Record summary: A member of the RNA family "raiA RNA", 205 nucleotides long. The base pairs follow the family's consensus structure, which is taken from published work. Rfam classes the family as a riboswitch. Rfam's curators put it in the seed alignment.
RNA sequence: UAAAGUUAGGUCUGUGGAUGAAAGUCGAUGCCAGUCGCAGGCGAAACGAUCCACGUAAGUUAGGCAAAAGUUCUAAUGAGCAUGGUGCGGUGUAGAAGUAAGUCCUACCAAGUAAAUUGAGAGGGUUAGUAGUGAGGAGUUAAGUCUUAGUAGCAAAAGCUCCAGUAGGCGAGUGUGGGGUCAAAGUCCAGGUCAGAUAACUUUG
Dot-bracket structure: ((((((((...((((((((........((([..((((((.]........((......(.(..((......))..).).....[))))))))............((((((((.....)))...((((.....((....((......)).....))....))))..)))))....)))......]..)))))...))).))))))))